[Rfam]
RNA sequence: CCAGGGGGCCGGGCAGCCGCGUGAUUUCGAUUGCGAGGAAAGUCCGGGCUCCACGAAACAAGGGUGGCGGGUAACGCCCGCCGUGGGCAACCACAGGGAAAGUGCCACAGAGAGCAUACCGCCGAUGGCCCGUUCACGGGAUCAGGCAAGGGUGAAAGGGUGCGGUAAGAGCGCACCGGGGCUUCGGUAACGCGGUCCGCAUGGCAAACCCCACCCGGAGCAAGGCCGAAUAGGGGCGGCGCGCUGGCAACAGCAGGUGCGUUUCGCAUCGACCGCCCGGGUUGGCUGCUCGAGCCCUGGAGCAAUCCAGGGCCCAGACGAAUGGCUGCCGCCGCGCGGCUGGUGUGGAAGCAUACCGCGUGCGGAACAGAACCCGGCUUACAGGCCCCCUGGCACU
Numbered sequence: 001c002c003a004g005g006g007g008g009c010c011g012g013g014c015a016g017c018c019g020c021g022u023g024a025u026u027u028c029g030a031u032u033g034c035g036a037g038g039a040a041a042g043u044c045c046g047g048g049c050u051c052c053a054c055g056a057a058a059c060a061a062g063g064g065u066g067g068c069g070g071g072u073a074a075c076g077c078c079c080g081c082c083g084u085g086g087g088c089a090a091c092c093a094c095a096g097g098g099a100a101a102g103u104g105c106c107a108c109a110g111a112g113a114g115c116a117u118a119c120c121g122c123c124g125a126u127g128g129c130c131c132g133u134u135c136a137c138g139g140g141a142u143c144a145g146g147c148a149a150g151g152g153u154g155a156a157a158g159g160g161u162g163c164g165g166u167a168a169g170a171g172c173g174c175a176c177c178g179g180g181g182c183u184u185c186g187g188u189a190a191c192g193c194g195g196u197c198c199g200c201a202u203g204g205c206a207a208a209c210c211c212c213a214c215c216c217g218g219a220g221c222a223a224g225g226c227c228g229a230a231u232a233g234g235g236g237c238g239g240c241g242c243g244c245u246g247g248c249a250a251c252a253g254c255a256g257g258u259g260c261g262u263u264u265c266g267c268a269u270c271g272a273c274c275g276c277c278c279g280g281g282u283u284g285g286c287u288g289c290u291c292g293a294g295c296c297c298u299g300g301a302g303c304a305a306u307c308c309a310g311g312g313c314c315c316a317g318a319c320g321a322a323u324g325g326c327u328g329c330c331g332c333c334g335c336g337c338g339g340c341u342g343g344u345g346u347g348g349a350a351g352c353a354u355a356c357c358g359c360g361u362g363c364g365g366a367a368c369a370g371a372a373c374c375c376g377g378c379u380u381a382c383a384g385g386c387c388c389c390c391u392g393g394c395a396c397u
Base pairs, nucleotide, nucleotide: 001393002392003391004390005389006388007387008386009385010384011382012330013329014328015327016326017325018324020035021034022033023032024031025030040380041379042378044377045376046375047374048373049220050219051218052217058264060262062216063215064214065213066212067081068080069079070078071077082096083094084093085092086091097211098210102209103208104205105204106203119151120150121147122146123145127143128142129140130139131138132137159177160176161175162174163173164172178200179198180197181196182195183194185192186191224287225286226285227284234278235277236276237275238274239273256270257269258268259267260266294313295312296311297310298309299308300307301306
This 397-nucleotide RNA from Erythrobacter sp. SD-21 belongs to the Rfam family "Bacterial RNase P class A". Rfam classes the family as a ribozyme. The family's consensus secondary structure is taken from published work. Rfam describes the family as follows. Ribonuclease P (RNase P) is a ubiquitous endoribonuclease, found in archaea, bacteria and eukarya as well as chloroplasts and mitochondria. Taxonomically the source falls in Erythrobacter (Bacteria, Pseudomonadota, Sphingomonadales, Erythrobacteraceae).